The family of this 318-nucleotide sequence from Candidatus Marinarcus aquaticus is "Bacterial RNase P class A". Lineage of the source: Bacteria > Pseudomonadati > Epsilonproteobacteria > Arcobacteraceae > Candidatus Marinarcus.
RNA sequence: CAGGUACAGCAGACAAUAGCUUUUUACAAGAGGAAAGUCCGAGCUGCAGUGAAGUAUGGUUCCAUUUAACGAAUGGCUAGGGCAACCUAAGGGACAGUGCAACAGAGAGUAGACCGCCCAUUUUGGGUAAGGGUGAAACGGUGGUGUAAGAGACCACCAGACUUUUGAGCAAUCUUAAGUGCUUUGUAAACCCAACCAGCAGCAAGAAGAGGUGGUGGGAACUUCACAAUCCCUCUCUUCGCAAGAGUGUUUAAGCAAUUAAACAACGAGAUAAAUUAUUGUCUAAUACAAAACUCGGCUUACAGCUGUGCCUUUUCU
Numbered sequence: 001c002a003g004g005u006a007c008a009g010c011a012g013a014c015a016a017u018a019g020c021u022u023u024u025u026a027c028a029a030g031a032g033g034a035a036a037g038u039c040c041g042a043g044c045u046g047c048a049g050u051g052a053a054g055u056a057u058g059g060u061u062c063c064a065u066u067u068a069a070c071g072a073a074u075g076g077c078u079a080g081g082g083c084a085a086c087c088u089a090a091g092g093g094a095c096a097g098u099g100c101a102a103c104a105g106a107g108a109g110u111a112g113a114c115c116g117c118c119c120a121u122u123u124u125g126g127g128u129a130a131g132g133g134u135g136a137a138a139c140g141g142u143g144g145u146g147u148a149a150g151a152g153a154c155c156a157c158c159a160g161a162c163u164u165u166u167g168a169g170c171a172a173u174c175u176u177a178a179g180u181g182c183u184u185u186g187u188a189a190a191c192c193c194a195a196c197c198a199g200c201a202g203c204a205a206g207a208a209g210a211g212g213u214g215g216u217g218g219g220a221a222c223u224u225c226a227c228a229a230u231c232c233c234u235c236u237c238u239u240c241g242c243a244a245g246a247g248u249g250u251u252u253a254a255g256c257a258a259u260u261a262a263a264c265a266a267c268g269a270g271a272u273a274a275a276u277u278a279u280u281g282u283c284u285a286a287u288a289c290a291a292a293a294c295u296c297g298g299c300u301u302a303c304a305g306c307u308g309u310g311c312c313u314u315u316u317c318u
Stems, first nucleotide, its partner, number of pairs: 002313009012283007020030003035301003039298005044202004054225001057198005062076005077091001078089004092193002097191002099187003114132002116128005140158006160182001161180004167174002206240004215235001217233004248265007